[Rfam]
RNA: tRNA
Organism: Saccharomyces cerevisiae
RNA sequence: GGAAAAUUAACUAUAGGUAAAGUGGAUUAUUUGCUAAGUAAUUGAAUUGUAAAUUCUUAUGAGUUCGAAUCUCAUAUUUUCCG
Dot-bracket structure: (((((((..(((........)))..(((((.......)))))................(((((.......)))))))))))).